[Rfam]
RNA sequence: UUUGAUAGGUGGAGUAAAAAAUCCGCACAUAUAUCGUCACAUUACUCUGGGUGCCUGUAAAAGGGUGGAGAAUGCGGAUAUAUGGAGGCCUAAC
Numbered sequence: 001u002u003u004g005a006u007a008g009g010u011g012g013a014g015u016a017a018a019a020a021a022u023c024c025g026c027a028c029a030u031a032u033a034u035c036g037u038c039a040c041a042u043u044a045c046u047c048u049g050g051g052u053g054c055c056u057g058u059a060a061a062a063g064g065g066u067g068g069a070g071a072a073u074g075c076g077g078a079u080a081u082a083u084g085g086a087g088g089c090c091u092a093a094c
Stems, first nucleotide, its partner, number of pairs: 028084008040074004045070004053066004
This 94-nucleotide RNA from Acinetobacter oleivorans belongs to the Rfam family "t44 RNA". It is annotated as a small RNA. About the family: This family consists of a number of bacterial RNA genes of between 135 and 170 bases in length. The sequence is in the family's curated seed alignment.